RNA sequence: CCUUCCGACCUCGAUCUAUAAGAGGAAGGGGGUGAGUUUUAUGAACUUUAUAAUCUCUUUUACACUGUCCGUCGCAGCGGGUGUAGUCAGCUAUUACAUCUGCAAGUGGCUUGACGACCAGUUCAAGGCCGGUAAGCACUAAUCCUUAGCAAGCAGGAAGCCCCCUCGGUAUUCGCACUACCGCGGGGGCUUCUUGUUGCUAC
Numbered sequence: 001c002c003u004u005c006c007g008a009c010c011u012c013g014a015u016c017u018a019u020a021a022g023a024g025g026a027a028g029g030g031g032g033u034g035a036g037u038u039u040u041a042u043g044a045a046c047u048u049u050a051u052a053a054u055c056u057c058u059u060u061u062a063c064a065c066u067g068u069c070c071g072u073c074g075c076a077g078c079g080g081g082u083g084u085a086g087u088c089a090g091c092u093a094u095u096a097c098a099u100c101u102g103c104a105a106g107u108g109g110c111u112u113g114a115c116g117a118c119c120a121g122u123u124c125a126a127g128g129c130c131g132g133u134a135a136g137c138a139c140u141a142a143u144c145c146u147u148a149g150c151a152a153g154c155a156g157g158a159a160g161c162c163c164c165c166u167c168g169g170u171a172u173u174c175g176c177a178c179u180a181c182c183g184c185g186g187g188g189g190c191u192u193c194u195u196g197u198u199g200c201u202a203c
Stems, first nucleotide, its partner, number of pairs: 005029002009025004031147002034144002043057002047052001071140001074137002078102003082098006108130003111126003149200003153197002157193009167183005